The record is a 174-nucleotide RNA from Ammoniphilus sp. CFH 90114, which matches "c-di-AMP riboswitch aptamer (ydaO/yuaA leader)" in Rfam. Taxonomically the source falls in Ammoniphilus (Bacteria, Bacillota, Caryophanales, Paenibacillaceae). Rfam links the family to the GO terms cyclic-di-AMP binding and regulation of gene expression. The match comes from Rfam's covariance-model search (71 bits).
RNA sequence: CCCUUUUUAUAGCCGAAACUUCACCAUUUUUUUAAUGAAGUGCGGGGGAUAUCUUUUCUAAAUCGGGCGUUACUCGCUUGAUUUUGGGGUUAAUCGCAGCAUCGCAUUGCGUAGGGUUGUCAUCCUUCAAUCCGAACCCGACAACUAACCUCGUAGGCAAACAAAAAGGAGGCA
Numbered sequence: 001c002c003c004u005u006u007u008u009a010u011a012g013c014c015g016a017a018a019c020u021u022c023a024c025c026a027u028u029u030u031u032u033u034a035a036u037g038a039a040g041u042g043c044g045g046g047g048g049a050u051a052u053c054u055u056u057u058c059u060a061a062a063u064c065g066g067g068c069g070u071u072a073c074u075c076g077c078u079u080g081a082u083u084u085u086g087g088g089g090u091u092a093a094u095c096g097c098a099g100c101a102u103c104g105c106a107u108u109g110c111g112u113a114g115g116g117u118u119g120u121c122a123u124c125c126u127u128c129a130a131u132c133c134g135a136a137c138c139c140g141a142c143a144a145c146u147a148a149c150c151u152c153g154u155a156g157g158c159a160a161a162c163a164a165a166a167a168g169g170a171g172g173c174a
Base pairs, nucleotide, nucleotide: 012158013157014156018041019040020039021038022037023036042154043153044152045151046150047149052086087139088138089137095111096110097109098108114133115132116131117130